[Rfam]
RNA sequence: AGGCCGACCGCCCGGCCUCCCGCCCGACUCCGGUACCUCAUACGGCCGGGGCGG
Numbered sequence: 001a002g003g004c005c006g007a008c009c010g011c012c013c014g015g016c017c018u019c020c021c022g023c024c025c026g027a028c029u030c031c032g033g034u035a036c037c038u039c040a041u042a043c044g045g046c047c048g049g050g051g052c053g054g
Base pairs, nucleotide, nucleotide: 001018002017003016004015005014024054025053026052028051029050030049031048032047033046034045
This 54-nucleotide sequence from Sinosporangium album belongs to the Rfam family "L17-Actino-Proteobacteria ribosomal protein leader".
The organism belongs to Sinosporangium, within Bacteria.
The literature on the family includes a 2020 paper in BMC Microbiol by Eckert and Weinberg, "Discovery of 20 novel ribosomal leader candidates in bacteria and archaea".